The family of this 59-nucleotide RNA from Klebsiella indica is "Enterobacterial sRNA STnc450".

RNA sequence: CGCUAUACUACCCCGUGUUACAAGCCGGUCCUAUGCCUUCGGACCGGUUUUUUGUGUGU
Numbered sequence: 001c002g003c004u005a006u007a008c009u010a011c012c013c014c015g016u017g018u019u020a021c022a023a024g025c026c027g028g029u030c031c032u033a034u035g036c037c038u039u040c041g042g043a044c045c046g047g048u049u050u051u052u053u054g055u056g057u058g059u
Base pairs, nucleotide, nucleotide: 002012004010005009017052020050024048025047026046027045028044029043030042031041
The match comes from Rfam's covariance-model search (44 bits). NCBI's taxonomy places the organism under Bacteria, Pseudomonadota, Gammaproteobacteria, Enterobacteriaceae, Klebsiella. Pairs were carried over by alignment from the consensus structure, which was predicted with CMfinder.